[Rfam]
The record is a 52-nucleotide RNA sequence from Aureimonas sp. AU20, which matches "ffh sRNA" in Rfam.
On this family, see Meyer et al., BMC Genomics 2009: "Identification of candidate structured RNAs in the marine organism 'Candidatus Pelagibacter ubique'".
It scores 52 bits against the family's covariance model.
RNA sequence: CCGCAUGGAGGUCCCCAUCCGCCAGCGAGAUUCGCCCGCGGAUGCGUUCCGC
Numbered sequence: 001c002c003g004c005a006u007g008g009a010g011g012u013c014c015c016c017a018u019c020c021g022c023c024a025g026c027g028a029g030a031u032u033c034g035c036c037c038g039c040g041g042a043u044g045c046g047u048u049c050c051g052c
Stems, first nucleotide, its partner, number of pairs: 016044007025035004